[Rfam]
Nucleotides: 089
Base pairs, nucleotide, nucleotide: 001089002088003087005086006085007084008083010082011081
Number, partner (000 for none) and nucleotide at each position: 001089c002088a003087u004000u005086g006085g007084c008083a009000a010082g011081g012000a013000a014000u015000g016000a017000u018000g019000a020000a021000u022000c023000a024000a025000u026000u027000a028000g029000a030000u031000g032000u033000g034000u035000g036000a037000a038000g039000u040000u041000u042000c043000c044000u045000u046000a047000u048000g049000a050000a051000c052000u053000u054000a055000a056000c057000u058000c059000u060000u061000g062000a063000g064000a065000c066000a067000u068000a069000c070000a071000u072000u073000c074000u075000g076000u077000c078000u079000g080000a081011c082010c083008u084007g085006c086005c087003a088002u089001g